[Rfam]
RNA sequence: AGGAUAGUACCUUUUGUGAACUAUACCUAUUACUAAAUUUUAUUAUUUAAAAAAUAUUUCUGCUCUGAACCACAGGACUGAGACGGAAGA
Numbered sequence: 001a002g003g004a005u006a007g008u009a010c011c012u013u014u015u016g017u018g019a020a021c022u023a024u025a026c027c028u029a030u031u032a033c034u035a036a037a038u039u040u041u042a043u044u045a046u047u048u049a050a051a052a053a054a055u056a057u058u059u060c061u062g063c064u065c066u067g068a069a070c071c072a073c074a075g076g077a078c079u080g081a082g083a084c085g086g087a088a089g090a
Stems, first nucleotide, its partner, number of pairs: 001028003004024005011018001060086003063082003067078001070076002